The family of this 76-nucleotide sequence from Anabas testudineus is "mir-10 microRNA precursor family". A reference for the family is Ambros (2001), "microRNAs: tiny regulators with great potential", Cell. A search with the family's covariance model found it, with a score of 58 bits. NCBI's taxonomy places the organism under Eukaryota, Metazoa, Teleostomi, Actinopterygii, Anabas.
[Rfam]
RNA sequence: CUAUAUCCACCCUGUAGAUCCGAAUUUGUGUACAUUUUGAAGCAGCCACAAAUUCGCAUCGUGGGGAGCAUGUAGG
Numbered sequence: 001c002u003a004u005a006u007c008c009a010c011c012c013u014g015u016a017g018a019u020c021c022g023a024a025u026u027u028g029u030g031u032a033c034a035u036u037u038u039g040a041a042g043c044a045g046c047c048a049c050a051a052a053u054u055c056g057c058a059u060c061g062u063g064g065g066g067a068g069c070a071u072g073u074a075g076g
Stems, first nucleotide, its partner, number of pairs: 002074005010066003017060003021056010